[Rfam]
RNA sequence: GCCACAUGAAAGACAAGGUAGUGAGACGCGAAGUGUCGCAAGAACAUCUCACUACCCAUGUCUUUCACCCAGAA
Numbered sequence: 001g002c003c004a005c006a007u008g009a010a011a012g013a014c015a016a017g018g019u020a021g022u023g024a025g026a027c028g029c030g031a032a033g034u035g036u037c038g039c040a041a042g043a044a045c046a047u048c049u050c051a052c053u054a055c056c057c058a059u060g061u062c063u064u065u066c067a068c069c070c071a072g073a074a
Stems, first nucleotide, its partner, number of pairs: 008066008017056002020053007028045001
Dot-bracket structure: .......((((((((.((.(((((((.(................).))))))).))..))))))))........
RNA: mir-71 microRNA precursor family